[Rfam]
The record is a 152-nucleotide RNA sequence from Carlito syrichta, which matches "U12 minor spliceosomal RNA" in Rfam. The literature on the family includes a 1997 paper in Trends Biochem Sci by Tarn and Steitz, "Pre-mRNA splicing: the discovery of a new spliceosome doubles the challenge". Its family is annotated with mRNA branch site recognition, pre-mRNA branch point binding and U12 snRNP in the Gene Ontology.

RNA sequence: AUGCUUCUUAAACUUAUGAGUAAGGAAAAUAACGUUUUGGGGUGAUGUCCGAAUCCUCGCUGCUAAUGUGGGAUGAAUUUUUGAGCAGGUAAAGGUUGCCCCUAAGGUGACCCACCUACUUUGUGGGAUGCCUGAGAGUCACCAUCUGCCCA
Dot-bracket structure: ...(..((((..........)))))........(.((((((......)))))).)(((((.......)))))...............(((..((((.(...((.(((((.(((((.......))))).))))).)).....).)))))))..

Annotation
The family's RNA type in Rfam is spliceosomal small nuclear RNA. Rfam 15.1 lists 2,106 matches to the family in 1,170 species. Lineage of the source: Eukaryota > Eumetazoa > Teleostomi > Sarcopterygii > Carlito. The match comes from Rfam's covariance-model search (112 bits).